The record is a 98-nucleotide RNA from Thermotalea metallivorans, which matches "Glycine riboswitch aptamer" in Rfam.

RNA sequence: GGACACAACCCUGGAGAGAACCUAUUGCCAUAGGUCAUCGAAGAAGUAACUUGCAUGUUUGCGAGGAAGCUUUCAGAUAAAAGGACAGGGGGUAGAAA
Numbered sequence: 001g002g003a004c005a006c007a008a009c010c011c012u013g014g015a016g017a018g019a020a021c022c023u024a025u026u027g028c029c030a031u032a033g034g035u036c037a038u039c040g041a042a043g044a045a046g047u048a049a050c051u052u053g054c055a056u057g058u059u060u061g062c063g064a065g066g067a068a069g070c071u072u073u074c075a076g077a078u079a080a081a082a083g084g085a086c087a088g089g090g091g092g093u094a095g096a097a098a
Stems, first nucleotide, its partner, number of pairs: 009090005020035004037078003040074002044072003050065006

Record summary
From the family's description: This family represents the bacterial glycine riboswitch. Taxonomically the source falls in Thermotalea (Bacteria, Bacillati, Clostridia, Thermotaleaceae).